[Rfam]
RNA sequence: AUUGCAAAUUCAAGGCUGUAGCAGAAGUGCUCACAGUACAGCCCCAUCAGAUUCCUGUGAGCUGAGAAUUCUGCU
Numbered sequence: 001a002u003u004g005c006a007a008a009u010u011c012a013a014g015g016c017u018g019u020a021g022c023a024g025a026a027g028u029g030c031u032c033a034c035a036g037u038a039c040a041g042c043c044c045c046a047u048c049a050g051a052u053u054c055c056u057g058u059g060a061g062c063u064g065a066g067a068a069u070u071c072u073g074c075u
Stems, first nucleotide, its partner, number of pairs: 014043004020075007027039003048064003052061003

Rfam assigns this 75-nucleotide RNA from Alligator mississippiensis to the family "Mammalian CPEB3 ribozyme". NCBI's taxonomy places the organism under Eukaryota, Opisthokonta, Deuterostomia, Sauropsida, Alligator. On this family, see Salehi-Ashtiani et al., Science 2006: "A genomewide search for ribozymes reveals an HDV-like sequence in the human CPEB3 gene". The base pairs follow the family's consensus structure, which is taken from published work.